[Rfam]
RNA: Small nucleolar RNA SNORA11
RNA sequence: GGGUUGUGCUCAGAGCAAGGCCCUGAAGAAAUGGCUUGUCUGCUUAGAACACACCAGACAGGAAUCUGUAUUCAUUGUAACAAAGGGCACAAAAGGUGUGGCCUUCCUACAAACAUCCAUCAUGUGU
Numbered sequence: 001g002g003g004u005u006g007u008g009c010u011c012a013g014a015g016c017a018a019g020g021c022c023c024u025g026a027a028g029a030a031a032u033g034g035c036u037u038g039u040c041u042g043c044u045u046a047g048a049a050c051a052c053a054c055c056a057g058a059c060a061g062g063a064a065u066c067u068g069u070a071u072u073c074a075u076u077g078u079a080a081c082a083a084a085g086g087g088c089a090c091a092a093a094a095g096g097u098g099u100g101g102c103c104u105u106c107c108u109a110c111a112a113a114c115a116u117c118c119a120u121c122a123u124g125u126g127u
Stems, first nucleotide, its partner, number of pairs: 003055001005053004013045005019039001020035003069122001072119001076115003084104003088100004